This 163-nucleotide sequence from Paenalkalicoccus suaedae belongs to the Rfam family "glmS glucosamine-6-phosphate activated ribozyme aptamer". The match comes from Rfam's covariance-model search (103 bits). The source organism's lineage runs through Bacteria, Bacillota, Caryophanales, Bacillaceae and Paenalkalicoccus.

[Rfam]
RNA sequence: GAGCAACAACAAGCGCCAGGACUGCAGGUGUUGCAGUUGACGAGGACGGAGGUUAUCGAGAGAUUCGGCGGAUGCCUCCCGGCUGAGAAUUUGCUACGGCCGUGAAGGGAAGGUCUAAAUCAGAGAGGCGACUCUCUGCACAAAGACCGGACCACUAGCACAU
Dot-bracket structure: ...................((((((((...)))))))).........(((((...((((.....))))......)))))((((((...........))))))....((...((.......(((((((....)))))))........))...))..........